Bacterial RNase P class A: a 355-nucleotide sequence from Rhodobiaceae bacterium UBA7378. About the family: Ribonuclease P (RNase P) is a ubiquitous endoribonuclease, found in archaea, bacteria and eukarya as well as chloroplasts and mitochondria. The family's RNA type in Rfam is ribozyme.
RNA sequence: UCAGAUAGUCGGGUGAUCGCGCUCGCGCAAGCGGGGGAGGAAAGUCCGGGCUCCACGGAAGCACGGUGCCGGAUAACGUCCGGCGGAGGCGACUCCAGGGAAAGUGCCACAGAAAGCAAACCGCCCGUAAGGGUAAGGGUGAAAGGGUGCGGUAAGAGCGCACCGCGCUGCCGGUAACGGCAGUGGCAGGGUAAACCCCGCCGGGAGCAAAACCAAAUAGAAGCGGUACAUGGCCGGUUUCCGGGCCACUGCUUGGGUAGGUUGCUUGAGGUGUCCGGUAACGGGCAUCCCAGAUGAAUGAUCACCGCCAUCCUUUGGAUGUGCACAGAACCCGGCUUACAGACUGUCUGACCCC
Numbered sequence: 001u002c003a004g005a006u007a008g009u010c011g012g013g014u015g016a017u018c019g020c021g022c023u024c025g026c027g028c029a030a031g032c033g034g035g036g037g038a039g040g041a042a043a044g045u046c047c048g049g050g051c052u053c054c055a056c057g058g059a060a061g062c063a064c065g066g067u068g069c070c071g072g073a074u075a076a077c078g079u080c081c082g083g084c085g086g087a088g089g090c091g092a093c094u095c096c097a098g099g100g101a102a103a104g105u106g107c108c109a110c111a112g113a114a115a116g117c118a119a120a121c122c123g124c125c126c127g128u129a130a131g132g133g134u135a136a137g138g139g140u141g142a143a144a145g146g147g148u149g150c151g152g153u154a155a156g157a158g159c160g161c162a163c164c165g166c167g168c169u170g171c172c173g174g175u176a177a178c179g180g181c182a183g184u185g186g187c188a189g190g191g192u193a194a195a196c197c198c199c200g201c202c203g204g205g206a207g208c209a210a211a212a213c214c215a216a217a218u219a220g221a222a223g224c225g226g227u228a229c230a231u232g233g234c235c236g237g238u239u240u241c242c243g244g245g246c247c248a249c250u251g252c253u254u255g256g257g258u259a260g261g262u263u264g265c266u267u268g269a270g271g272u273g274u275c276c277g278g279u280a281a282c283g284g285g286c287a288u289c290c291c292a293g294a295u296g297a298a299u300g301a302u303c304a305c306c307g308c309c310a311u312c313c314u315u316u317g318g319a320u321g322u323g324c325a326c327a328g329a330a331c332c333c334g335g336c337u338u339a340c341a342g343a344c345u346g347u348c349u350g351a352c353c354c355c
Stems, first nucleotide, its partner, number of pairs: 001351010011340001012306007020037001022035005042338003046335005051207004060240002064203005069083005084098001085096004099198002104196002106192003121138002123134004146164006165187001166185008211263004221254006232246001234244003270289008